[Rfam]
Shown here is a 120-nucleotide sequence from Glycine soja, a member of the family "MIR1520 microRNA precursor family". Its family is annotated with miRNA-mediated post-transcriptional gene silencing and RISC complex in the Gene Ontology.

RNA sequence: UUCUUAUUGGAUGAUGAAUGUCACGUGUCAUGUUCUGAUUGGCCAAUGACAACAACAAUGCAUUUCAUCUUCCAUGGAUUUGACAUCCAAUCAGAACAUGACAUGCGUCAUUCAUCAUCC
Numbered sequence: 001u002u003c004u005u006a007u008u009g010g011a012u013g014a015u016g017a018a019u020g021u022c023a024c025g026u027g028u029c030a031u032g033u034u035c036u037g038a039u040u041g042g043c044c045a046a047u048g049a050c051a052a053c054a055a056c057a058a059u060g061c062a063u064u065u066c067a068u069c070u071u072c073c074a075u076g077g078a079u080u081u082g083a084c085a086u087c088c089a090a091u092c093a094g095a096a097c098a099u100g101a102c103a104u105g106c107g108u109c110a111u112u113c114a115u116c117a118u119c120c
Base pairs, nucleotide, nucleotide: 020109022107025104026103029100030099031098033096034095035094036093038091039090040089041088042087